[Rfam]
Description
The family of this 71-nucleotide RNA sequence from Stegodyphus mimosarum is "mir-10 microRNA precursor family". The literature on the family includes a 2001 paper in Cell by Ambros, "microRNAs: tiny regulators with great potential". Rfam 15.1 lists 3,853 matches to the family in 853 species.
RNA sequence: UCAUGCCUACCCGUAGAUCCGAACUUGUGUUCACUCAUUCUCACAAGUUUGAUUUUACGGGCUGGUGUGGG
Numbered sequence: 001u002c003a004u005g006c007c008u009a010c011c012c013g014u015a016g017a018u019c020c021g022a023a024c025u026u027g028u029g030u031u032c033a034c035u036c037a038u039u040c041u042c043a044c045a046a047g048u049u050u051g052a053u054u055u056u057a058c059g060g061g062c063u064g065g066u067g068u069g070g071g
Stems, first nucleotide, its partner, number of pairs: 002069006010061003015056003020051010